[Rfam]
RNA sequence: AGCAUUCUGUAUCCGUGCUGAGAUUUCGUCACAUACCAGACAACAAGGGCUGAUGAGACUUCCAAUAAUAAGUGAAGCG
Numbered sequence: 001a002g003c004a005u006u007c008u009g010u011a012u013c014c015g016u017g018c019u020g021a022g023a024u025u026u027c028g029u030c031a032c033a034u035a036c037c038a039g040a041c042a043a044c045a046a047g048g049g050c051u052g053a054u055g056a057g058a059c060u061u062c063c064a065a066u067a068a069u070a071a072g073u074g075a076a077g078c079g
Base pairs, nucleotide, nucleotide: 002078003077005075006074008072010070011069012068016064017063020061021060022059024058025057026056027055028054029053030052
Rfam assigns this 79-nucleotide sequence from Schistosoma margrebowiei to the family "mir-3492 microRNA precursor family". The match comes from Rfam's covariance-model search (73 bits).